[Rfam]
RNA: MIR5565 microRNA precursor family
Organism: Sorghum bicolor
RNA sequence: GCAGUCGUAUUCACAUCAAUUCAUAUGUGUUGAGGUAGAUUGGAGUAGAACUUGAACUAAAUUUCACUCCAAUCCACACCAACACACAUACAUUGAAGUAAAUACGACA
Numbered sequence: 001g002c003a004g005u006c007g008u009a010u011u012c013a014c015a016u017c018a019a020u021u022c023a024u025a026u027g028u029g030u031u032g033a034g035g036u037a038g039a040u041u042g043g044a045g046u047a048g049a050a051c052u053u054g055a056a057c058u059a060a061a062u063u064u065c066a067c068u069c070c071a072a073u074c075c076a077c078a079c080c081a082a083c084a085c086a087c088a089u090a091c092a093u094u095g096a097a098g099u100a101a102a103u104a105c106g107a108c109a
Base pairs, nucleotide, nucleotide: 004108005107006106007105008104009103010102011101013099014098016096017095018094019093020092023089024088026086027085028084029083030082031081032080035077036076038074039073040072041071042070043069045067046066
Dot-bracket structure: ...((((((((.((.(((((..((.(((((((..((.((((((.((...................)).)))))).))..))))))).))..))))).)).)))))))).